The family of this 68-nucleotide sequence from Lottia gigantea is "mir-1993 microRNA precursor family".
RNA sequence: AUAUUUCGGGAAUAUAGGCAUAAUGCCCGUUAAUACUUGAACGUAUUAUGCUGAUAUUCACGAGAUCC
Numbered sequence: 001a002u003a004u005u006u007c008g009g010g011a012a013u014a015u016a017g018g019c020a021u022a023a024u025g026c027c028c029g030u031u032a033a034u035a036c037u038u039g040a041a042c043g044u045a046u047u048a049u050g051c052u053g054a055u056a057u058u059c060a061c062g063a064g065a066u067c068c
Stems, first nucleotide, its partner, number of pairs: 003066006010059006017052008030040004